[Rfam]
RNA: Histone 3' UTR stem-loop
RNA sequence: CCAAAGGCUCUUUUCAGAGCCACCCACUAGAUCACUGAAGAGCUG
Numbered sequence: 001c002c003a004a005a006g007g008c009u010c011u012u013u014u015c016a017g018a019g020c021c022a023c024c025c026a027c028u029a030g031a032u033c034a035c036u037g038a039a040g041a042g043c044u045g
Base pairs, nucleotide, nucleotide: 006021007020008019009018010017011016